[Rfam]
RNA: ffh sRNA
RNA sequence: CGGUCUCAGGAUCGCCACCCGUCAGCGAGUUUCGCCCACGGGUGAUUUUGUC
Numbered sequence: 001c002g003g004u005c006u007c008a009g010g011a012u013c014g015c016c017a018c019c020c021g022u023c024a025g026c027g028a029g030u031u032u033c034g035c036c037c038a039c040g041g042g043u044g045a046u047u048u049u050g051u052c
Base pairs, nucleotide, nucleotide: 016044017043018042019041020040021039022038025035026034027033028032